RNA sequence: UAGGCGACAUCUUUCGAUAAGAGUUGCACUAUACGAUGGUUGAUCGUAGUUAAUAAUUGUUGAAAAUCUGCUUCGAGCCAUUGGGACGGGGACAGAAAA
Numbered sequence: 001u002a003g004g005c006g007a008c009a010u011c012u013u014u015c016g017a018u019a020a021g022a023g024u025u026g027c028a029c030u031a032u033a034c035g036a037u038g039g040u041u042g043a044u045c046g047u048a049g050u051u052a053a054u055a056a057u058u059g060u061u062g063a064a065a066a067u068c069u070g071c072u073u074c075g076a077g078c079c080a081u082u083g084g085g086a087c088g089g090g091g092a093c094a095g096a097a098a099a
Stems, first nucleotide, its partner, number of pairs: 001031003004027005010022004068095003071091005078085002
RNA: pan motif